[Rfam]
RNA sequence: UUAAUCCUUCAGGGCAGGGUGAAAAUCCCGACCGGCGGUAAAGUCCGCGAGCUAUUUUUAGCAGGAACUGGUGAAAUUCCAGUACCGACAGUAAAGUCUGGAUGGAAGAAGGGAAGU
Numbered sequence: 001u002u003a004a005u006c007c008u009u010c011a012g013g014g015c016a017g018g019g020u021g022a023a024a025a026u027c028c029c030g031a032c033c034g035g036c037g038g039u040a041a042a043g044u045c046c047g048c049g050a051g052c053u054a055u056u057u058u059u060a061g062c063a064g065g066a067a068c069u070g071g072u073g074a075a076a077u078u079c080c081a082g083u084a085c086c087g088a089c090a091g092u093a094a095a096g097u098c099u100g101g102a103u104g105g106a107a108g109a110a111g112g113g114a115a116g117u
Stems, first nucleotide, its partner, number of pairs: 005113006017029003031097002033087002035048004043085002051062003067083005089100003